[Rfam]
RNA sequence: AACCCGUAUGCCGAAAAGGGGAUAAAAGAGUAGGCG
Numbered sequence: 001a002a003c004c005c006g007u008a009u010g011c012c013g014a015a016a017a018g019g020g021g022a023u024a025a026a027a028g029a030g031u032a033g034g035c036g
Stems, first nucleotide, its partner, number of pairs: 003020003010035003
Source information:
DUF805b RNA: a 36-nucleotide RNA from Limnovirga soli. The family's consensus secondary structure is taken from published work. By type it is a cis-regulatory element. It scores 38 bits against the family's covariance model. The organism belongs to Limnovirga, within Bacteria.